U4 spliceosomal RNA: a 140-nucleotide RNA sequence from Suricata suricatta.
RNA sequence: AGCUUUGUGCAGUGGCAGUAUCACAGCCAGUGAGGCUUAUCCGAGACGUGAUUCUUGCUUAUAUCGUAUCAUGAUUCUGUAUCUUAAGCCAUUCCUGGAAUUAUGAUGAAUUGCUAGGGAUUUGAUGUAACCCAUAGGUA
Numbered sequence: 001a002g003c004u005u006u007g008u009g010c011a012g013u014g015g016c017a018g019u020a021u022c023a024c025a026g027c028c029a030g031u032g033a034g035g036c037u038u039a040u041c042c043g044a045g046a047c048g049u050g051a052u053u054c055u056u057g058c059u060u061a062u063a064u065c066g067u068a069u070c071a072u073g074a075u076u077c078u079g080u081a082u083c084u085u086a087a088g089c090c091a092u093u094c095c096u097g098g099a100a101u102u103a104u105g106a107u108g109a110a111u112u113g114c115u116a117g118g119g120a121u122u123u124g125a126u127g128u129a130a131c132c133c134a135u136a137g138g139u140a
Stems, first nucleotide, its partner, number of pairs: 020052005026047001028045001034042002084119002087115003091111004096106001135140001
Pairs were carried over by alignment from the consensus structure, which is taken from published work.
Gene Ontology terms of the family: U4 snRNP and spliceosomal tri-snRNP complex assembly.